[Rfam]
Nucleotides: 170
Stems, first nucleotide, its partner, number of pairs: 001154002006033002034151006044084001085136003093113004116130004
Number, partner (000 for none) and nucleotide at each position: 001154c002153c003000a004000c005000a006033u007032c008000g009000a010000c011000c012000g013000a014000c015000c016000a017000a018000c019000u020000c021000a022000c023000g024000c025000a026000c027000g028000g029000c030000a031000g032007g033006a034151g035150c036149g037148g038147g039146g040000g041000a042000c043000c044084c045000a046000g047000g048000u049000a050000a051000g052000u053000c054000g055000c056000c057000g058000c059000g060000c061000c062000g063000g064000a065000c066000a067000c068000c069000a070000c071000a072000c073000c074000g075000g076000a077000g078000c079000g080000g081000c082000u083000c084044g085136g086135g087134g088000u089000g090000a091000a092000g093113c094112c095111g096110u097000g098000c099000c100000c101000g102000u103000c104000a105000g106000g107000g108000c109000c110096a111095c112094g113093g114000c115000c116130g117129g118128g119127c120000a121000c122000c123000u124000c125000c126000c127119g128118c129117c130116c131000g132000a133000a134087c135086c136085c137000g138000a139000c140000a141000g142000c143000u144000c145000a146039c147038c148037u149036c150035g151034c152000a153002g154001g155000c156000g157000g158000c159000a160000g161000g162000a163000g164000a165000g166000g167000a168000c169000a170000u